[Rfam]
RNA sequence: UCGAGCGACCCGCCGAAUCGUUACGCGGCAUCGCAAUGAGCCGGGGACCCAUUCAAUCGGGGUGUAUUCACAUCAUGUGGACGGGCAGCCACAGCCCGAACCCGUCAGCUAACUCGGUAGGCGGAUGAGGCUGAAUGG
Numbered sequence: 001u002c003g004a005g006c007g008a009c010c011c012g013c014c015g016a017a018u019c020g021u022u023a024c025g026c027g028g029c030a031u032c033g034c035a036a037u038g039a040g041c042c043g044g045g046g047a048c049c050c051a052u053u054c055a056a057u058c059g060g061g062g063u064g065u066a067u068u069c070a071c072a073u074c075a076u077g078u079g080g081a082c083g084g085g086c087a088g089c090c091a092c093a094g095c096c097c098g099a100a101c102c103c104g105u106c107a108g109c110u111a112a113c114u115c116g117g118u119a120g121g122c123g124g125a126u127g128a129g130g131c132u133g134a135a136u137g138g
Stems, first nucleotide, its partner, number of pairs: 011123004018039005040118006050059001060103003068080004083097004

A member of the RNA family "c-di-AMP riboswitch aptamer (ydaO/yuaA leader)" from a Mycobacteriales bacterium, 138 nucleotides long.
Taxonomically the source falls in Mycobacteriales (Bacteria, Bacillati, Actinomycetota, Actinomycetes).
Its family is annotated with cyclic-di-AMP binding and regulation of gene expression in the Gene Ontology.